[Rfam]
Annotation: The family of this 72-nucleotide RNA from Megalops atlanticus is "Small nucleolar RNA SNORD102". Taxonomically the source falls in Megalops (Eukaryota, Bilateria, Craniata, Gnathostomata). The literature on the family includes a 2003 paper in Nucleic Acids Res by Vitali et al., "Identification of 13 novel human modification guide RNAs". It is annotated as a C/D-box small nucleolar RNA. Its family is annotated with RNA processing and nucleolus in the Gene Ontology. The match comes from Rfam's covariance-model search (47 bits).
RNA sequence: UGCUCGAUGAUGAUUGUCUCCUACGAUUGUCUUGUCGACAAAGUGAAAGCACCUUCACCGGCACUGAGAGCA
Numbered sequence: 001u002g003c004u005c006g007a008u009g010a011u012g013a014u015u016g017u018c019u020c021c022u023a024c025g026a027u028u029g030u031c032u033u034g035u036c037g038a039c040a041a042a043g044u045g046a047a048a049g050c051a052c053c054u055u056c057a058c059c060g061g062c063a064c065u066g067a068g069a070g071c072a
Stems, first nucleotide, its partner, number of pairs: 001072005